RNA sequence: CUGAAACACUAGGGGAGUCAGAAGUGACUGAGAUGGAAAGAGUAAUUUCCAGACCCUUUGAACCUGAUCUAGUUCAUACUAGCGUAGGGAAGUGGCGAAACUCUAUU
Numbered sequence: 001c002u003g004a005a006a007c008a009c010u011a012g013g014g015g016a017g018u019c020a021g022a023a024g025u026g027a028c029u030g031a032g033a034u035g036g037a038a039a040g041a042g043u044a045a046u047u048u049c050c051a052g053a054c055c056c057u058u059u060g061a062a063c064c065u066g067a068u069c070u071a072g073u074u075c076a077u078a079c080u081a082g083c084g085u086a087g088g089g090a091a092g093u094g095g096c097g098a099a100a101c102u103c104u105a106u107u
Base pairs, nucleotide, nucleotide: 007094008093009092010091011057012056013055014054017028018027019026020025035050036049037048038047039046063088064087065086066085069082070081071080072079
A member of the RNA family "TPP riboswitch aptamer (THI element)" from Bacillus sp. THAF10, 107 nucleotides long. Vitamin B(1) in its active form thiamin pyrophosphate (TPP) is an essential coenzyme that is synthesised by coupling of pyrimidine and thiazole moieties in bacteria. A search with the family's covariance model found it, with a score of 82 bits. Taxonomically the source falls in Bacillus (Bacteria, Bacillati, Caryophanales, Bacillaceae).